[Rfam]
Shown here is a 91-nucleotide sequence from Candidatus Fervidibacter japonicus, a member of the family "Selenocysteine transfer RNA". Pairs were carried over by alignment from the consensus structure, which is taken from published work. The match comes from Rfam's covariance-model search (78 bits). The source organism's lineage runs through Bacteria, Bacteria candidate phyla, Fervidibacterales, Fervidibacteraceae and Fervidibacter.

RNA sequence: GGGAGCGGUAGAGGUCUGGUGACCUCCCAGGACUUCAAAUCCUGUGCACCGCCCACAAGGCGGUGGGUGGGUUCAAUUCCCAUCCGCUCCC
Numbered sequence: 001g002g003g004a005g006c007g008g009u010a011g012a013g014g015u016c017u018g019g020u021g022a023c024c025u026c027c028c029a030g031g032a033c034u035u036c037a038a039a040u041c042c043u044g045u046g047c048a049c050c051g052c053c054c055a056c057a058a059g060g061c062g063g064u065g066g067g068u069g070g071g072u073u074c075a076a077u078u079c080c081c082a083u084c085c086g087c088u089c090c091c
Base pairs, nucleotide, nucleotide: 001091002090003089004088005087006086007085008084011026012025013024014023015022016021028044029043030042031041032040047065048064049063050062051061068082069081070080071079